Shown here is a 250-nucleotide RNA from Amphiprion ocellaris, a member of the family "RNase MRP". It is annotated as a ribozyme. Pairs were carried over by alignment from the consensus structure, which is taken from published work. For this family Rfam cites "Secondary structure of RNase MRP RNA as predicted by phylogenetic comparison" (Schmitt et al., FASEB J, 1993).

[Rfam]
RNA sequence: GGGCAUUCGGAACACUUGCACUCUGGGCUACUGACUGAGAACCAGUUUCUCCCCCUCCGCCCAGGGGAAAGUCCCCGGACCCGAGACAGAAAGUGUCCUGGUUGAAUCCAGCGUCGACCGGUGAGGCGCAGUGUUUGAAGCUAAGACGUUCCAAUGAACCGAGCUUCGUCAUUGCCGGUCGACUUUGUCAGUUAAAUAGUCAUGCAAGUAAGCAGCUACUUAACAGAACGGGGCUCAUUCUCGGAAUGCG
Numbered sequence: 001g002g003g004c005a006u007u008c009g010g011a012a013c014a015c016u017u018g019c020a021c022u023c024u025g026g027g028c029u030a031c032u033g034a035c036u037g038a039g040a041a042c043c044a045g046u047u048u049c050u051c052c053c054c055c056u057c058c059g060c061c062c063a064g065g066g067g068a069a070a071g072u073c074c075c076c077g078g079a080c081c082c083g084a085g086a087c088a089g090a091a092a093g094u095g096u097c098c099u100g101g102u103u104g105a106a107u108c109c110a111g112c113g114u115c116g117a118c119c120g121g122u123g124a125g126g127c128g129c130a131g132u133g134u135u136u137g138a139a140g141c142u143a144a145g146a147c148g149u150u151c152c153a154a155u156g157a158a159c160c161g162a163g164c165u166u167c168g169u170c171a172u173u174g175c176c177g178g179u180c181g182a183c184u185u186u187g188u189c190a191g192u193u194a195a196a197u198a199g200u201c202a203u204g205c206a207a208g209u210a211a212g213c214a215g216c217u218a219c220u221u222a223a224c225a226g227a228a229c230g231g232g233g234c235u236c237a238u239u240c241u242c243g244g245a246a247u248g249c250g
Stems, first nucleotide, its partner, number of pairs: 003249006010242002014209006022065007037051005070235002073233004085097004098111004114182009126172001128170001138166004148159004211220002